[Rfam]
RNA sequence: UUGUAGAAUUUGAAGAAUUCAACUUGUAUACAUGAAGGGUUUGAAGACUUCAAGCUUGCAUACUUGUUUGAAUUUAAAGACUUCAAGC
Numbered sequence: 001u002u003g004u005a006g007a008a009u010u011u012g013a014a015g016a017a018u019u020c021a022a023c024u025u026g027u028a029u030a031c032a033u034g035a036a037g038g039g040u041u042u043g044a045a046g047a048c049u050u051c052a053a054g055c056u057u058g059c060a061u062a063c064u065u066g067u068u069u070g071a072a073u074u075u076a077a078a079g080a081c082u083u084c085a086a087g088c
Stems, first nucleotide, its partner, number of pairs: 001086003005082002009078006017069001020066002025060004033052005
This 88-nucleotide sequence from Solanum tuberosum belongs to the Rfam family "MIR8024 microRNA precursor family".
The base pairs follow the family's consensus structure, which was predicted with RNAalifold.
Its family is annotated with RISC complex and miRNA-mediated post-transcriptional gene silencing in the Gene Ontology.